[Rfam]
RNA sequence: GUCGGGAGGGCGACGAAUACAACACCCGUAAGGGGAAUAAGUCCGCGGUUCUUUAGGCCGUUCUGAACCUCCCGACACCACUAU
Numbered sequence: 001g002u003c004g005g006g007a008g009g010g011c012g013a014c015g016a017a018u019a020c021a022a023c024a025c026c027c028g029u030a031a032g033g034g035g036a037a038u039a040a041g042u043c044c045g046c047g048g049u050u051c052u053u054u055a056g057g058c059c060g061u062u063c064u065g066a067a068c069c070u071c072c073c074g075a076c077a078c079c080a081c082u083a084u
Stems, first nucleotide, its partner, number of pairs: 001076009012043003016038001025034003045061005
Rfam assigns this 84-nucleotide RNA to the family "sRNA-Xcc1". The family's consensus secondary structure was predicted with RNAalifold. It is annotated as a small RNA.